Overview:
This 210-nucleotide sequence from Oryza barthii belongs to the Rfam family "MIR812 microRNA precursor family". Gene Ontology terms of the family: RISC complex and miRNA-mediated post-transcriptional gene silencing. NCBI's taxonomy places the organism under Eukaryota, Tracheophyta, Mesangiospermae, Poaceae, Oryza.
RNA sequence: AAUAAGUGCAGCCGUGGAUAUCCGUGCCUAACAUUUGACCGUCCGUCUUAUUUGAAAAAUUUAUGAAAAAUUUAAAAAUAUUUAGUCACACAUAAAAUACUAUUCAUGUUUUAUCAUCUAAUAGCAACGAAAAUACUAAUCAUAAAAAAAUUUUAAAUAAGACGAACAAUCAAACGUUAAACACGUGAAUAAUGUAAAACUACACUUAUU
Numbered sequence: 001a002a003u004a005a006g007u008g009c010a011g012c013c014g015u016g017g018a019u020a021u022c023c024g025u026g027c028c029u030a031a032c033a034u035u036u037g038a039c040c041g042u043c044c045g046u047c048u049u050a051u052u053u054g055a056a057a058a059a060u061u062u063a064u065g066a067a068a069a070a071u072u073u074a075a076a077a078a079u080a081u082u083u084a085g086u087c088a089c090a091c092a093u094a095a096a097a098u099a100c101u102a103u104u105c106a107u108g109u110u111u112u113a114u115c116a117u118c119u120a121a122u123a124g125c126a127a128c129g130a131a132a133a134u135a136c137u138a139a140u141c142a143u144a145a146a147a148a149a150a151u152u153u154u155a156a157a158u159a160a161g162a163c164g165a166a167c168a169a170u171c172a173a174a175c176g177u178u179a180a181a182c183a184c185g186u187g188a189a190u191a192a193u194g195u196a197a198a199a200c201u202a203c204a205c206u207u208a209u210u
Stems, first nucleotide, its partner, number of pairs: 029179004034174005041167002044164008